[Rfam]
Source information:
The record is a 102-nucleotide RNA from Monodelphis domestica, which matches "Vault RNA" in Rfam.
RNA sequence: GGGCCGGCUUUUAGCCCAGCGGUUCCUUCGGCAUUUCAGAACAUUUCCUGCUCUGACUAACGUUAAGGCGUUCGAGCCCCGCGGGCGCUUCCUGGCCCUUUU
Numbered sequence: 001g002g003g004c005c006g007g008c009u010u011u012u013a014g015c016c017c018a019g020c021g022g023u024u025c026c027u028u029c030g031g032c033a034u035u036u037c038a039g040a041a042c043a044u045u046u047c048c049u050g051c052u053c054u055g056a057c058u059a060a061c062g063u064u065a066a067g068g069c070g071u072u073c074g075a076g077c078c079c080c081g082c083g084g085g086c087g088c089u090u091c092c093u094g095g096c097c098c099u100u101u102u
Base pairs, nucleotide, nucleotide: 002097003096004095005094006093007092014086015085016084017083019082020081021080022079027076028075029074030073031072
The literature on the family includes a 2009 paper in Mol Biol Evol by Stadler et al., "Evolution of Vault RNAs".